[Rfam]
A member of the RNA family "Streptomyces RNA 3920" from Streptomyces sp. S4.7, 135 nucleotides long.
By type it is a small RNA.
Taxonomically the source falls in Streptomyces (Bacteria, Bacillati, Actinomycetes, Streptomycetaceae).
Pairs were carried over by alignment from the consensus structure.
A reference for the family is Vockenhuber et al. (2011), "Deep sequencing-based identification of small non-coding RNAs in Streptomyces coelicolor", RNA Biol.
Identified by deep sequencing of transcriptome at the end of exponential growth phase. Sequencing size consistent with northern blot size.
RNA sequence: GAUAGGCGGCUGUCGCUACCGUGAUUGGACACUGACGCAGAGUCAACUAGCCUUGCUGGCGUGGUUCUUCGCGCGCGAGACCCGGGGCGGAACGGACGGCCCGAGCCACGAGGGGGGAGGCUCGGACCGUCCGUU
Numbered sequence: 001g002a003u004a005g006g007c008g009g010c011u012g013u014c015g016c017u018a019c020c021g022u023g024a025u026u027g028g029a030c031a032c033u034g035a036c037g038c039a040g041a042g043u044c045a046a047c048u049a050g051c052c053u054u055g056c057u058g059g060c061g062u063g064g065u066u067c068u069u070c071g072c073g074c075g076c077g078a079g080a081c082c083c084g085g086g087g088c089g090g091a092a093c094g095g096a097c098g099g100c101c102c103g104a105g106c107c108a109c110g111a112g113g114g115g116g117g118a119g120g121c122u123c124g125g126a127c128c129g130u131c132c133g134u135u
Stems, first nucleotide, its partner, number of pairs: 001014005015051004021032003033045004059074006076094002095131005101125007109116001